[Rfam]
RNA sequence: AAGCGAGCCUCUGGAAAGUGCCCCGCCCGUAUGGUCGUGGCCGCCGAAGGUGUAACCCGGCCUGUCCUGUUUGGGAUUCGUCCCAUAAGGGAUGACGCCGGGGAAGCUCUCAGGCUUCCGUGACAGAGGGGGCACC
Dot-bracket structure: .......((((((......(((................))).(((((..(.(...((((((...................................))))))....).))).)))........)))))).......